[Rfam]
The record is an 89-nucleotide RNA from Actinidia chinensis, which matches "Plastid-psbM 3UTR RNA" in Rfam.
It scores 72 bits against the family's covariance model.
For this family Rfam cites "Retrograde signaling in plants: A critical review focusing on the GUN pathway and beyond" (Richter et al., Plant Commun, 2023).
The source organism's lineage runs through Eukaryota, Viridiplantae, Euphyllophyta, Mesangiospermae and Actinidia chinensis.
The base pairs follow the family's consensus structure, which was predicted with LocARNA.
Nucleotides: 089
Base pairs, nucleotide, nucleotide: 006055009052010051011050012049013048014047015046016045017044018043019042020041021040022039023038
Number, partner (000 for none) and nucleotide at each position: 001000u002000a003000u004000c005000u006055g007000a008000u009052a010051g011050u012049a013048u014047g015046g016045u017044a018043g019042a020041a021040a022039g023038a024000a025000u026000g027000a028000u029000u030000a031000a032000u033000a034000u035000c036000u037000u038023u039022c040021u041020u042019u043018c044017u045016a046015c047014c048013a049012u050011a051010c052009u053000c054000g055006c056000u057000a058000u059000u060000a061000g062000u063000c064000u065000u066000a067000u068000u069000g070000u071000c072000g073000u074000g075000u076000a077000u078000a079000a080000a081000g082000u083000u084000g085000u086000a087000g088000a089000g